This 233-nucleotide sequence from Trifolium subterraneum belongs to the Rfam family "MIR2655 microRNA precursor family". The match comes from Rfam's covariance-model search (123 bits). Lineage of the source: Eukaryota > Streptophytina > Tracheophyta > fabids > Trifolium.
[Rfam]
Nucleotides: 233
Stems, first nucleotide, its partner, number of pairs: 002231007023208003027204003031200013045186003
Number, partner (000 for none) and nucleotide at each position: 001000c002231u003230c004229u005228u006227a007226u008225c009000u010000u011000u012000u013000a014000a015000a016000a017000g018000u019000u020000u021000c022000a023208a024207g025206u026000u027204g028203g029202u030000c031200c032199c033198u034197u035196a036195u037194c038193u039192u040191u041190u042189u043188u044000u045186u046185a047184g048000g049000u050000u051000u052000c053000a054000a055000g056000u057000u058000g059000g060000u061000c062000c063000c064000u065000u066000c067000c068000g069000u070000c071000a072000a073000u074000u075000u076000u077000u078000u079000u080000a081000c082000u083000g084000u085000u086000a087000c088000c089000g090000u091000u092000a093000a094000a095000u096000u097000u098000g099000g100000a101000c102000a103000c104000g105000u106000g107000u108000c109000a110000u111000a112000u113000g114000u115000c116000c117000a118000a119000g120000u121000a122000u123000g124000c125000c126000a127000c128000g129000u130000g131000u132000c133000c134000a135000a136000a137000u138000u139000u140000a141000a142000c143000g144000g145000a146000a147000a148000u149000a150000g151000u152000a153000a154000a155000a156000a157000a158000a159000u160000u161000g162000a163000c164000g165000g166000a167000a168000g169000a170000g171000a172000c173000c174000a175000a176000c177000u178000u179000g180000a181000a182000a183000c184047c185046u186045a187000a188043a189042a190041a191040a192039a193038a194037g195036a196035u197034a198033a199032g200031g201000a202029a203028c204027c205000a206025a207024c208023u209000u210000g211000a212000a213000a214000c215000c216000u217000a218000a219000a220000a221000u222000a223000a224000a225008g226007a227006u228005a229004a230003g231002a232000g233000a
Background: Rfam links the family to the GO terms miRNA-mediated post-transcriptional gene silencing and RISC complex. Rfam 15.1 lists 892 matches to the family in 5 species.